[Rfam]
RNA sequence: UGAGUAAGCCAGAUGAUCGCUGCUAUGUAAAUAGGAGAGGAAAGUCCGAGCUCCGCAGGGCAGGGUGCUGGGUAACUCCCAGUGAGGGUGACCUUAAGGAAAGUGCAACAGAGAGAUACCGCUGGCGUGAUGCGUCAGUAAGGGUGGAAAGGCGAGGUAAGAGCUCACCAGCACAUUGGCGACUUUGUGGCUAUGUAAACCCCACCUGGUGCAAGGCCGAAUAGGGGGACAUGAUGGAGCGGCCCGUUCCGUCCCCGGGUGUGCCGCUGGAACCAUUGAGAAAUCUUUGGUCUAGACAGAUGAUCAUCAAAUACAGAACUCGGCUUACAGACUUACUCAGUCU
Numbered sequence: 001u002g003a004g005u006a007a008g009c010c011a012g013a014u015g016a017u018c019g020c021u022g023c024u025a026u027g028u029a030a031a032u033a034g035g036a037g038a039g040g041a042a043a044g045u046c047c048g049a050g051c052u053c054c055g056c057a058g059g060g061c062a063g064g065g066u067g068c069u070g071g072g073u074a075a076c077u078c079c080c081a082g083u084g085a086g087g088g089u090g091a092c093c094u095u096a097a098g099g100a101a102a103g104u105g106c107a108a109c110a111g112a113g114a115g116a117u118a119c120c121g122c123u124g125g126c127g128u129g130a131u132g133c134g135u136c137a138g139u140a141a142g143g144g145u146g147g148a149a150a151g152g153c154g155a156g157g158u159a160a161g162a163g164c165u166c167a168c169c170a171g172c173a174c175a176u177u178g179g180c181g182a183c184u185u186u187g188u189g190g191c192u193a194u195g196u197a198a199a200c201c202c203c204a205c206c207u208g209g210u211g212c213a214a215g216g217c218c219g220a221a222u223a224g225g226g227g228g229a230c231a232u233g234a235u236g237g238a239g240c241g242g243c244c245c246g247u248u249c250c251g252u253c254c255c256c257g258g259g260u261g262u263g264c265c266g267c268u269g270g271a272a273c274c275a276u277u278g279a280g281a282a283a284u285c286u287u288u289g290g291u292c293u294a295g296a297c298a299g300a301u302g303a304u305c306a307u308c309a310a311a312u313a314c315a316g317a318a319c320u321c322g323g324c325u326u327a328c329a330g331a332c333u334u335a336c337u338c339a340g341u342c343u
Stems, first nucleotide, its partner, number of pairs: 001339008010330001012308007020037002023034004042326003046323005051211001053209002058245004063207005068082005083097001084095004098202002103200002105196003119143002121139008151169002154166003171191001172189004178183001215265003225256006236250005272291004278285002
Rfam assigns this 343-nucleotide RNA from Clostridiaceae bacterium JG1575 to the family "Bacterial RNase P class A". Pairs were carried over by alignment from the consensus structure, which is taken from published work. Gene Ontology terms of the family: ribonuclease P activity, dimeric ribonuclease P complex and tRNA processing. Lineage of the source: Bacteria > Bacillati > Bacillota > Clostridia > Clostridiaceae. About the family: Ribonuclease P (RNase P) is a ubiquitous endoribonuclease, found in archaea, bacteria and eukarya as well as chloroplasts and mitochondria.